[Rfam]
RNA: Bacterial RNase P class B
Organism: Mycoplasmopsis glycophila
RNA sequence: UACAUCAGUUGGCAGAGGUUACUUUAUGUAAUCUAGGAAAAUCCGCACUAGCACUGCCUGCGACGGUAGUAGUGUUCAUGCUAAGCCCAAUAAGCUUAGGCCUAGACGACUAGUGCCACAGAGACGAGAAUUGUGAAACGGGUAAACUCCAUGAGCUAGAAACUCAAAUUACGGUAGAGGAACCUGAAAUAGGAAAUGAACGAAUUUCGGGAACGUAUUUAAUUAAGUACGUUAGAUAAAUUGUCAACACCUUAUUAAUUUAAGGCACAGAAAGCGGUUUAUGAU
Numbered sequence: 001u002a003c004a005u006c007a008g009u010u011g012g013c014a015g016a017g018g019u020u021a022c023u024u025u026a027u028g029u030a031a032u033c034u035a036g037g038a039a040a041a042u043c044c045g046c047a048c049u050a051g052c053a054c055u056g057c058c059u060g061c062g063a064c065g066g067u068a069g070u071a072g073u074g075u076u077c078a079u080g081c082u083a084a085g086c087c088c089a090a091u092a093a094g095c096u097u098a099g100g101c102c103u104a105g106a107c108g109a110c111u112a113g114u115g116c117c118a119c120a121g122a123g124a125c126g127a128g129a130a131u132u133g134u135g136a137a138a139c140g141g142g143u144a145a146a147c148u149c150c151a152u153g154a155g156c157u158a159g160a161a162a163c164u165c166a167a168a169u170u171a172c173g174g175u176a177g178a179g180g181a182a183c184c185u186g187a188a189a190u191a192g193g194a195a196a197u198g199a200a201c202g203a204a205u206u207u208c209g210g211g212a213a214c215g216u217a218u219u220u221a222a223u224u225a226a227g228u229a230c231g232u233u234a235g236a237u238a239a240a241u242u243g244u245c246a247a248c249a250c251c252u253u254a255u256u257a258a259u260u261u262a263a264g265g266c267a268c269a270g271a272a273a274g275c276g277g278u279u280u281a282u283g284a285u
Base pairs, nucleotide, nucleotide: 004285005284006283007282008248009247010246011245012244013243014242016034017033018032019031020030021029039280040279041278043277044276045275046274048159049158050157051156052155053070054069055068056067057066058065076154077153078152079151080150081099082098083097084096085095086094100107101105108149109148113147114146115143116142117141163179164178165177183211184210185209186208187207188206189205212233213232214231215230216229217228218227219226220225250265251264252263253262254261